[Rfam]
Description
Bradyrhizobiaceae sRNA BjrC68: a 78-nucleotide sequence from a Bradyrhizobiaceae bacterium. For this family Rfam cites "Small RNAs of the Bradyrhizobium/Rhodopseudomonas lineage and their analysis" (Madhugiri et al., RNA Biol, 2012). Taxonomically the source falls in Nitrobacteraceae (Bacteria, Pseudomonadota, Alphaproteobacteria, Hyphomicrobiales).
RNA sequence: CCGGAUCGAUCGGGGCAAUACCCGGCAAUGUCCCGAUCGUCGAAGGGCUCCAGCGCAAGCUGGGGCCCUUCACUUUUU
Numbered sequence: 001c002c003g004g005a006u007c008g009a010u011c012g013g014g015g016c017a018a019u020a021c022c023c024g025g026c027a028a029u030g031u032c033c034c035g036a037u038c039g040u041c042g043a044a045g046g047g048c049u050c051c052a053g054c055g056c057a058a059g060c061u062g063g064g065g066c067c068c069u070u071c072a073c074u075u076u077u078u
Base pairs, nucleotide, nucleotide: 007039008038009037010036011035012034013033014032015031044069045068046067047066048065049064050063051062053060054059